[Rfam]
This 149-nucleotide sequence from Amborella trichopoda belongs to the Rfam family "MIR8565 microRNA precursor family".
It scores 145 bits against the family's covariance model.
RNA sequence: CCCACACCCAUGUGUGUAGGACCUCAAAGGAUCACCAUUAAAUUUGGUAUAGAUCUCUAGAAAAGUCGCACAUCUAUGUGAUAACUUUUCUAGAGAUCUGUGCCAAAUUUAAUGGUGAUCCUUUGGGGUCCUAUACACAUGGGUGUGAG
Number, nucleotide and partner (000 for none) at each position: 001c000002c000003c147004a146005c145006a144007c143008c142009c141010a140011u139012g138013u137014g000015u135016g134017u133018a132019g131020g130021a129022c128023c127024u126025c125026a124027a123028a122029g000030g120031a119032u118033c000034a116035c115036c114037a113038u112039u111040a110041a109042a108043u107044u106045u105046g104047g103048u102049a101050u100051a099052g098053a097054u096055c095056u094057c093058u092059a091060g090061a089062a088063a087064a086065g085066u084067c000068g082069c080070a079071c078072a077073u000074c000075u000076a000077u072078g071079u070080g069081a000082u068083a000084a066085c065086u064087u063088u062089u061090c060091u059092a058093g057094a056095g055096a054097u053098c052099u051100g050101u049102g048103c047104c046105a045106a044107a043108u042109u041110u040111a039112a038113u037114g036115g035116u034117g000118a032119u031120c030121c000122u028123u027124u026125g025126g024127g023128g022129u021130c020131c019132u018133a017134u016135a015136c000137a013138c012139a011140u010141g009142g008143g007144u006145g005146u004147g003148a000149g000